Notes: This 68-nucleotide RNA from Sinimarinibacterium arenosum belongs to the Rfam family "int-alpA RNA". The source organism's lineage runs through Bacteria, Pseudomonadati, Gammaproteobacteria, Nevskiales and Sinimarinibacterium.

RNA sequence: CGCCCGCCUAGCCCGACGGGGCAAAAAGCCGGAACCCUUCCCGGCCUGGCGGUGCGGCCUUUUGAGGG
Numbered sequence: 001c002g003c004c005c006g007c008c009u010a011g012c013c014c015g016a017c018g019g020g021g022c023a024a025a026a027a028g029c030c031g032g033a034a035c036c037c038u039u040c041c042c043g044g045c046c047u048g049g050c051g052g053u054g055c056g057g058c059c060u061u062u063u064g065a066g067g068g
Base pairs, nucleotide, nucleotide: 001056002055003054004052005051006050007049008048011022012021013020014019028045029044030043031042032041035068036067037066038065039064
Acidobacteria (1 example), Planctomycetes (1 example), Proteobacteria.